[Rfam]
Rfam assigns this 119-nucleotide sequence from Filifactor alocis to the family "FMN riboswitch aptamer (RFN element)". The base pairs follow the family's consensus structure, which is taken from published work. NCBI's taxonomy places the organism under Bacteria, Clostridia, Peptostreptococcales, Filifactor, Filifactor alocis.
RNA sequence: AUGUUUCUUCAGGGCAGGGUGUAAUUCCCGACCGGCGGUAUAGUCCGCGAGUUUUGAAUAAAAACUGAACCUGUGCAAUUCGGGUACCGACAGUAGAGUCUGGAUGGGAGAAGAUUUCU
Numbered sequence: 001a002u003g004u005u006u007c008u009u010c011a012g013g014g015c016a017g018g019g020u021g022u023a024a025u026u027c028c029c030g031a032c033c034g035g036c037g038g039u040a041u042a043g044u045c046c047g048c049g050a051g052u053u054u055u056g057a058a059u060a061a062a063a064a065c066u067g068a069a070c071c072u073g074u075g076c077a078a079u080u081c082g083g084g085u086a087c088c089g090a091c092a093g094u095a096g097a098g099u100c101u102g103g104a105u106g107g108g109a110g111a112a113g114a115u116u117u118c119u
Base pairs, nucleotide, nucleotide: 003117006114007113008112009111010110017029018028019027031099032098033089034088035048036047037046038045043087044086051065052064053063069085070084071083072082073081091102092101093100